The family of this 84-nucleotide RNA from Salmonella enterica is "DsrA RNA". Rfam classes the family as a small RNA. DsrA RNA regulates both transcription, by overcoming transcriptional silencing by the nucleoid-associated H-NS protein, and translation, by promoting efficient translation of the stress sigma factor, RpoS. These two activities of DsrA can be separated by mutation: the first of three stem-loops of the 85 nucleotide RNA is necessary for RpoS translation but not for anti-H-NS action, while the second stem-loop is essential for antisilencing and less critical for RpoS translation. The third stem-loop, which behaves as a transcription terminator, can be substituted by the trp transcription terminator without loss of either DsrA function. It is one of the family's seed sequences. NCBI's taxonomy places the organism under Bacteria, Pseudomonadota, Salmonella enterica, Salmonella enterica subsp. enterica, Salmonella enterica subsp. enterica serovar Paratyphi C. A reference for the family is Sledjeski and Gottesman (1995), "A small RNA acts as an antisilencer of the H-NS-silenced rcsA gene of Escherichia coli", Proc Natl Acad Sci USA. The base pairs follow the family's consensus structure, which is taken from published work.
RNA sequence: CUCACAUCAGAUUUCCUGGUGUAACGAAUUUUCAAGUGCUUCUUGCAUAAGCAAGUUUGAUCCCGACCCGUAGGGCCGGGAUUU
Numbered sequence: 001c002u003c004a005c006a007u008c009a010g011a012u013u014u015c016c017u018g019g020u021g022u023a024a025c026g027a028a029u030u031u032u033c034a035a036g037u038g039c040u041u042c043u044u045g046c047a048u049a050a051g052c053a054a055g056u057u058u059g060a061u062c063c064c065g066a067c068c069c070g071u072a073g074g075g076c077c078g079g080g081a082u083u084u
Stems, first nucleotide, its partner, number of pairs: 004022007026058003029054002031051002034048001036046003060082006067074002